Rfam assigns this 135-nucleotide RNA from Macaca mulatta to the family "Small nucleolar RNA U109".
The source organism's lineage runs through Eukaryota, Vertebrata, Gnathostomata, Sarcopterygii and Macaca.
[Rfam]
Nucleotides: 135
Base pairs, nucleotide, nucleotide: 003060004059005058006057007056016042017041018040019039020038021037022036023035073128074127075126076125085115086114089111090109091108092107093106095104096103
Number, partner (000 for none) and nucleotide at each position: 001000u002000u003060g004059c005058a006057u007056g008000a009000g010000g011000a012000a013000g014000u015000a016042u017041c018040u019039g020038c021037u022036c023035u024000u025000c026000a027000u028000u029000c030000c031000u032000u033000u034000g035023g036022g037021g038020g039019c040018a041017g042016a043000a044000a045000u046000a047000c048000a049000u050000c051000u052000a053000u054000c055000a056007c057006a058005u059004g060003c061000u062000a063000a064000a065000u066000u067000a068000c069000a070000a071000a072000a073128g074127g075126a076125g077000g078000u079000c080000u081000c082000a083000g084000g085115g086114c087000c088000g089111c090109c091108a092107a093106c094000g095104u096103u097000u098000c099000a100000a101000u102000a103096g104095a105000g106093g107092u108091u109090g110000a111089g112000u113000g114086g115085u116000a117000g118000u119000a120000u121000a122000u123000u124000a125076c126075u127074c128073c129000u130000a131000u132000a133000u134000a135000a
By type it is an H/ACA-box small nucleolar RNA. The family's consensus secondary structure was predicted with WAR.